A member of the RNA family "Ruegeria cis52 sRNA" from Sedimentitalea nanhaiensis, 181 nucleotides long.
The literature on the family includes a 2016 paper in Front Microbiol by Rivers et al., "Experimental Identification of Small Non-Coding RNAs in the Model Marine Bacterium Ruegeria pomeroyi DSS-3".
A search with the family's covariance model found it, with a score of 125 bits.
The organism belongs to Sedimentitalea, within Bacteria.

RNA sequence: UGCGCAGCGCGUGUUUCAUCACGAUGUUGCUGAACUUGACGCCUUUCAGCCGCGCGGUGCGGAUAUAUUGCGCCGUCAUCACCUCGGUCAUGCUGGCGCGGGUCAUGCGGGCGAUAUAGCCCAUGCCAUAAAGCGCGAUGGUCAGGACCGGCAGAAAGAAAUUCUCGAAAUUGGCGCUUUC
Numbered sequence: 001u002g003c004g005c006a007g008c009g010c011g012u013g014u015u016u017c018a019u020c021a022c023g024a025u026g027u028u029g030c031u032g033a034a035c036u037u038g039a040c041g042c043c044u045u046u047c048a049g050c051c052g053c054g055c056g057g058u059g060c061g062g063a064u065a066u067a068u069u070g071c072g073c074c075g076u077c078a079u080c081a082c083c084u085c086g087g088u089c090a091u092g093c094u095g096g097c098g099c100g101g102g103u104c105a106u107g108c109g110g111g112c113g114a115u116a117u118a119g120c121c122c123a124u125g126c127c128a129u130a131a132a133g134c135g136c137g138a139u140g141g142u143c144a145g146g147a148c149c150g151g152c153a154g155a156a157a158g159a160a161a162u163u164c165u166c167g168a169a170a171u172u173g174g175c176g177c178u179u180u181c
Base pairs, nucleotide, nucleotide: 005140006139008137009136010135011134012133014131015130016128020125021124028123029122040111042109046105048103050101051100052099053098054097055075056074057073058072059071060070061069062068082096083095145181146180147179149176150175152173153172154165156163157162